[Rfam]
RNA sequence: AAUAAAUAUUACGGGAGUCUGUGGAAUCAGGCUGAGAGUAUGACUAACUGUCGUAGACCGUUUGAACCUGUUGGGUAAUGCCAGCGUAGGGAUUGUGAAUAGGGGACUAC
Numbered sequence: 001a002a003u004a005a006a007u008a009u010u011a012c013g014g015g016a017g018u019c020u021g022u023g024g025a026a027u028c029a030g031g032c033u034g035a036g037a038g039u040a041u042g043a044c045u046a047a048c049u050g051u052c053g054u055a056g057a058c059c060g061u062u063u064g065a066a067c068c069u070g071u072u073g074g075g076u077a078a079u080g081c082c083a084g085c086g087u088a089g090g091g092a093u094u095g096u097g098a099a100u101a102g103g104g105g106a107c108u109a110c
Base pairs, nucleotide, nucleotide: 007097008096009095011061012060013059014058017032018031019030020029021028039055040054041053042052043051067090068089069088070087071084072083073082074081

A member of the RNA family "TPP riboswitch aptamer (THI element)" from Peribacillus loiseleuriae, 110 nucleotides long. The family's consensus secondary structure is taken from published work.